[Rfam]
About this RNA: A member of the RNA family "gut-2 RNA", 48 nucleotides long. The sequence is in the family's curated seed alignment.
RNA sequence: GACGUGCCCGGAAACGGCCGGGCAUAAGAGCUGAACGGAGCUGACUGU
Numbered sequence: 001g002a003c004g005u006g007c008c009c010g011g012a013a014a015c016g017g018c019c020g021g022g023c024a025u026a027a028g029a030g031c032u033g034a035a036c037g038g039a040g041c042u043g044a045c046u047g048u
Stems, first nucleotide, its partner, number of pairs: 004025008029042004